[Rfam]
RNA sequence: CAAAUGUAAUGUUUACAUGAGGCAGAUGAGCUCACAAAUUUUUAUGGUGUUGUCUAUCAGCUUCUUUCUCAUGUGAGUUUGGAGUUAAAUAACAGCACUACAUUU
Numbered sequence: 001c002a003a004a005u006g007u008a009a010u011g012u013u014u015a016c017a018u019g020a021g022g023c024a025g026a027u028g029a030g031c032u033c034a035c036a037a038a039u040u041u042u043u044a045u046g047g048u049g050u051u052g053u054c055u056a057u058c059a060g061c062u063u064c065u066u067u068c069u070c071a072u073g074u075g076a077g078u079u080u081g082g083a084g085u086u087a088a089a090u091a092a093c094a095g096c097a098c099u100a101c102a103u104u105u
Base pairs, nucleotide, nucleotide: 046099047098048097049096050095051094052093059086060085061084062083063082064081068077069076070075
Dot-bracket structure: .............................................(((((((......((((((...(((....)))...))))))......)))))))......